[Rfam]
RNA sequence: UGUCAUGCUUUUCCACAGCUUUCUUGAACUUCUGCUUAUCUACAAUUGUCUGGUAUAGAAGUUCAAGAAAGCUGUGGGAAGACAUGGUGA
Number, nucleotide and partner (000 for none) at each position: 001u000002g000003u087004c086005a085006u084007g083008c000009u000010u000011u000012u000013c077014c076015a075016c000017a073018g072019c071020u070021u069022u068023c000024u066025u065026g064027a063028a000029c061030u060031u059032c058033u057034g000035c000036u000037u000038a000039u000040c000041u000042a000043c000044a000045a000046u000047u000048g000049u000050c000051u000052g000053g000054u000055a000056u000057a033058g032059a031060a030061g029062u000063u027064c026065a025066a024067g000068a022069a021070a020071g019072c018073u017074g000075u015076g014077g013078g000079a000080a000081g000082a000083c007084a006085u005086g004087g003088u000089g000090a000

Shown here is a 90-nucleotide RNA sequence from Protea cynaroides, a member of the family "MIR396 microRNA precursor family".
Pairs were carried over by alignment from the consensus structure, which was predicted with WAR.
Its family is annotated with miRNA-mediated post-transcriptional gene silencing and RISC complex in the Gene Ontology.